[Rfam]
RNA sequence: GCGCGUUCUCAGGGCGGGGUGAAAUUCCCCACCGGCGGUAACGGGGAGACCCGAAGCCCGCGAGCGCCCCGGCCAGCCGGCCGGGGGUCAAGCAGAUCCGGUGCGACUCCGGAGCCGACGGUCACAGUCCGGAUGGAAGAGAGCGGAU
Numbered sequence: 001g002c003g004c005g006u007u008c009u010c011a012g013g014g015c016g017g018g019g020u021g022a023a024a025u026u027c028c029c030c031a032c033c034g035g036c037g038g039u040a041a042c043g044g045g046g047a048g049a050c051c052c053g054a055a056g057c058c059c060g061c062g063a064g065c066g067c068c069c070c071g072g073c074c075a076g077c078c079g080g081c082c083g084g085g086g087g088u089c090a091a092g093c094a095g096a097u098c099c100g101g102u103g104c105g106a107c108u109c110c111g112g113a114g115c116c117g118a119c120g121g122u123c124a125c126a127g128u129c130c131g132g133a134u135g136g137a138a139g140a141g142a143g144c145g146g147a148u
Stems, first nucleotide, its partner, number of pairs: 004145007017029003031128002033117002035061004056115002064093002097113005119131003
Shown here is a 148-nucleotide RNA sequence from Paroceanicella profunda, a member of the family "FMN riboswitch aptamer (RFN element)". It scores 105 bits against the family's covariance model.